[Rfam]
RNA sequence: CAUAAAAUUAGGCAAACUUACUGAAAGGUGAGGGCGCAAAGCCAUGGGUCUAAGGACUGUAGGAAGUCUAUGAUUGCCAGGUUACCAUU
Dot-bracket structure: ...........((...((((((....))))))...))..((((.((((((....((((......))))...)))..)))))))......
Numbered sequence: 001c002a003u004a005a006a007a008u009u010a011g012g013c014a015a016a017c018u019u020a021c022u023g024a025a026a027g028g029u030g031a032g033g034g035c036g037c038a039a040a041g042c043c044a045u046g047g048g049u050c051u052a053a054g055g056a057c058u059g060u061a062g063g064a065a066g067u068c069u070a071u072g073a074u075u076g077c078c079a080g081g082u083u084a085c086c087a088u089u
Stems, first nucleotide, its partner, number of pairs: 012037002017032006040083004045079003048074003055068004
c-di-GMP-I riboswitch aptamer: an 89-nucleotide RNA from Pelosinus sp. UFO1. The family's consensus secondary structure is taken from published work. NCBI's taxonomy places the organism under Bacteria, Bacillati, Bacillota, Selenomonadales, Pelosinus. A search with the family's covariance model found it, with a score of 78 bits.